The family of this 106-nucleotide sequence from Cyanobacteria bacterium FACHB-502 is "Glutamine riboswitch aptamer (glnA leader)". The match comes from Rfam's covariance-model search (40 bits). Its family is annotated with glutamine binding in the Gene Ontology. On this family, see Ren et al., Cell Rep 2015: "Structural and Dynamic Basis for Low-Affinity, High-Selectivity Binding of L-Glutamine by the Glutamine Riboswitch".
[Rfam]
RNA sequence: AACGUUCAUCUCCAGCGAUACUGCUCACCCUACCCUCAACCCGUAGGGAAAUCGCGAGAGACGGAAGUAGGGUCAAUGACACAUCAGUGACUUGAAGGAACGCGCC
Numbered sequence: 001a002a003c004g005u006u007c008a009u010c011u012c013c014a015g016c017g018a019u020a021c022u023g024c025u026c027a028c029c030c031u032a033c034c035c036u037c038a039a040c041c042c043g044u045a046g047g048g049a050a051a052u053c054g055c056g057a058g059a060g061a062c063g064g065a066a067g068u069a070g071g072g073u074c075a076a077u078g079a080c081a082c083a084u085c086a087g088u089g090a091c092u093u094g095a096a097g098g099a100a101c102g103c104g105c106c
Base pairs, nucleotide, nucleotide: 003102004101005100006099007098009061010060011059012058064103070093071092072091073090074089075088